Shown here is a 45-nucleotide RNA from Rhodococcus sp. UNC23MFCrub1.1, a member of the family "L31-Actinobacteria ribosomal protein leader". The family's RNA type in Rfam is cis-regulatory leader. The base pairs follow the family's consensus structure, which is taken from published work. The family is grouped with related families in Rfam's "Ribosomal Protein L31 Leader clan".
RNA sequence: CCGGUUCCGGUUCACGCACUCGACAGUCGAGGCGACCCGGCGACC
Numbered sequence: 001c002c003g004g005u006u007c008c009g010g011u012u013c014a015c016g017c018a019c020u021c022g023a024c025a026g027u028c029g030a031g032g033c034g035a036c037c038c039g040g041c042g043a044c045c
Stems, first nucleotide, its partner, number of pairs: 003045003007040004015034003019031005